[Rfam]
RNA: TPP riboswitch aptamer (THI element)
Organism: Paractinoplanes atraurantiacus
RNA sequence: GCAAGCCGACAGGGGAGCGCACAGCGCUGAGAGUGCGGGUGACACCGCAGACCCUCGUACCUGAUCUGGGUAAUGCCAGCGCAGGAAGCUCGGGAGGAACCACAU
Dot-bracket structure: .....((((.((((..((((...))))......(((((......)))))..))))....((((..((((......))))..))))....))))............
Numbered sequence: 001g002c003a004a005g006c007c008g009a010c011a012g013g014g015g016a017g018c019g020c021a022c023a024g025c026g027c028u029g030a031g032a033g034u035g036c037g038g039g040u041g042a043c044a045c046c047g048c049a050g051a052c053c054c055u056c057g058u059a060c061c062u063g064a065u066c067u068g069g070g071u072a073a074u075g076c077c078a079g080c081g082c083a084g085g086a087a088g089c090u091c092g093g094g095a096g097g098a099a100c101c102a103c104a105u
Stems, first nucleotide, its partner, number of pairs: 006093004011055004017027004034049005060085004066079004